[Rfam]
RNA: Bacteroidales small SRP
RNA sequence: UUGCACCCGGCAGGUCUUACACGACCAGCUCCCGCUGAACCCCCCCAGGGCCGGAAGGCAGCAAGGGUAGGUGGUUGUAGCGGUGCGAUGUAAAUCGCCUGCCUUUUU
Numbered sequence: 001u002u003g004c005a006c007c008c009g010g011c012a013g014g015u016c017u018u019a020c021a022c023g024a025c026c027a028g029c030u031c032c033c034g035c036u037g038a039a040c041c042c043c044c045c046c047a048g049g050g051c052c053g054g055a056a057g058g059c060a061g062c063a064a065g066g067g068u069a070g071g072u073g074g075u076u077g078u079a080g081c082g083g084u085g086c087g088a089u090g091u092a093a094a095u096c097g098c099c100u101g102c103c104u105u106u107u108u
Stems, first nucleotide, its partner, number of pairs: 009103007017093005022087002024084002